[Rfam]
RNA: Small nucleolar RNA SNORA28
Organism: Mustela putorius
RNA sequence: AAGCAAAACUUGGUGGCAGAUGAUCGAAGCUGUCUCAUGCAAUCUAAGCCCUCUAGGCAAAAAAGUCUUACCUAUUCCAGUGCUCUCUCCAUGAGACCAACUGUUACACAGACUUAAACAGU
Numbered sequence: 001a002a003g004c005a006a007a008a009c010u011u012g013g014u015g016g017c018a019g020a021u022g023a024u025c026g027a028a029g030c031u032g033u034c035u036c037a038u039g040c041a042a043u044c045u046a047a048g049c050c051c052u053c054u055a056g057g058c059a060a061a062a063a064a065g066u067c068u069u070a071c072c073u074a075u076u077c078c079a080g081u082g083c084u085c086u087c088u089c090c091a092u093g094a095g096a097c098c099a100a101c102u103g104u105u106a107c108a109c110a111g112a113c114u115u116a117a118a119c120a121g122u
Stems, first nucleotide, its partner, number of pairs: 009048003013040003018035005063115006073108001075106001078103004086096004
Dot-bracket structure: ........(((.(((..(((((........)))))..))).....)))..............((((((....(.(..((((....((((...))))...))))..).).)))))).......